RNA sequence: GGCGCCGACCUGGUGAAGGUCGACGCC
Numbered sequence: 001g002g003c004g005c006c007g008a009c010c011u012g013g014u015g016a017a018g019g020u021c022g023a024c025g026c027c
Base pairs, nucleotide, nucleotide: 001027002026003025004024006022007021008020009019010018011017
ribosomal frameshift site: a 27-nucleotide sequence from Actinoplanes friuliensis.
The family's consensus secondary structure is taken from published work.
The literature on the family includes a 2009 paper in Virol J by Firth et al., "Bioinformatic evidence for a stem-loop structure 5'-adjacent to the IGR-IRES and for an overlapping gene in the bee paralysis dicistroviruses".
NCBI's taxonomy places the organism under Bacteria, Micromonosporales, Micromonosporaceae, Actinoplanes, Actinoplanes friuliensis.
A search with the family's covariance model found it, with a score of 41 bits.